[Rfam]
RNA sequence: AGCUCAGUGGUCGGCAAACCGCGGCUCAUGAGCCACAUGCGGGUCGCGAGCCGCGGUUUGCAGCUCUGUUGA
Numbered sequence: 001a002g003c004u005c006a007g008u009g010g011u012c013g014g015c016a017a018a019c020c021g022c023g024g025c026u027c028a029u030g031a032g033c034c035a036c037a038u039g040c041g042g043g044u045c046g047c048g049a050g051c052c053g054c055g056g057u058u059u060g061c062a063g064c065u066c067u068g069u070u071g072a
Stems, first nucleotide, its partner, number of pairs: 005068003009065002012063001014061014029046001031044001033042002
The family of this 72-nucleotide RNA sequence from Eptesicus fuscus is "mir-9209 microRNA precursor family".
Rfam links the family to the GO terms RISC complex and miRNA-mediated post-transcriptional gene silencing.
Rfam's curators put it in the seed alignment.
NCBI's taxonomy places the organism under Eukaryota, Teleostomi, Sarcopterygii, Mammalia, Eptesicus.